[Rfam]
U2 spliceosomal RNA: a 196-nucleotide sequence from Zingiber officinale. The family is grouped with related families in Rfam's "U2 clan". Pairs were carried over by alignment from the consensus structure, which is taken from published work. Rfam's curators write: U2 is a small nuclear RNA (snRNA) component of the spliceosome (involved in pre-mRNA splicing). Complementary binding between U2 snRNA (in an area lying towards the 5' end but 3' to hairpin I) and the branchpoint sequence (BPS) of the intron results the bulging out of an unpaired adenosine, on the BPS, which initiates a nucleophilic attack at the intronic 5' splice site, thus starting the first of two transesterification reactions that mediate splicing. A search with the family's covariance model found it, with a score of 144 bits. It is annotated as a spliceosomal small nuclear RNA.

RNA sequence: AUACCUUUCUCGGCCUUUUGGCUAAGAUCAAGUGUAGUAUCUGUUCUUAUCAGUUUAAUAUCCGAUACGUGGGCCAUUGGUUCACUAUGAUAUUAAAUUAAUUUUUGUUUUGGGGAGGGAUCAUUAUAGUAGCUUGCUAAUGGAUCCUUCGCGGUCAUUCCUGUGUUGCAGUAUUGUAGGGGUUCGACGCACUCGC
Numbered sequence: 001a002u003a004c005c006u007u008u009c010u011c012g013g014c015c016u017u018u019u020g021g022c023u024a025a026g027a028u029c030a031a032g033u034g035u036a037g038u039a040u041c042u043g044u045u046c047u048u049a050u051c052a053g054u055u056u057a058a059u060a061u062c063c064g065a066u067a068c069g070u071g072g073g074c075c076a077u078u079g080g081u082u083c084a085c086u087a088u089g090a091u092a093u094u095a096a097a098u099u100a101a102u103u104u105u106u107g108u109u110u111u112g113g114g115g116a117g118g119g120a121u122c123a124u125u126a127u128a129g130u131a132g133c134u135u136g137c138u139a140a141u142g143g144a145u146c147c148u149u150c151g152c153g154g155u156c157a158u159u160c161c162u163g164u165g166u167u168g169c170a171g172u173a174u175u176g177u178a179g180g181g182g183u184u185c186g187a188c189g190c191a192c193u194c195g196c
Base pairs, nucleotide, nucleotide: 008027009026010025012023013022014021015020048067049066050065051064053062069085070084071083072082073081074080075079115150116149117148118147119146120145121144122143130139131138132137154188155187156186159181160180161179162178163177164176